[Rfam]
RNA: Y RNA-like
Organism: Luteolibacter pohnpeiensis
RNA sequence: ACCGCGAAUGCCACGAAAACUACAUUGAUUCUUUGGUCGCCGGUUCAACUCCGGCCCUUGCCUCGGCAAGGUAGCUCAGUGGUAGAGCAAAGAAAUGUUUUCGGACUUCUUGUCGCGGUUCU
Numbered sequence: 001a002c003c004g005c006g007a008a009u010g011c012c013a014c015g016a017a018a019a020c021u022a023c024a025u026u027g028a029u030u031c032u033u034u035g036g037u038c039g040c041c042g043g044u045u046c047a048a049c050u051c052c053g054g055c056c057c058u059u060g061c062c063u064c065g066g067c068a069a070g071g072u073a074g075c076u077c078a079g080u081g082g083u084a085g086a087g088c089a090a091a092g093a094a095a096u097g098u099u100u101u102c103g104g105a106c107u108u109c110u111u112g113u114c115g116c117g118g119u120u121c122u
Stems, first nucleotide, its partner, number of pairs: 002118006014103006023092001032091003039055005046082001056071006074088004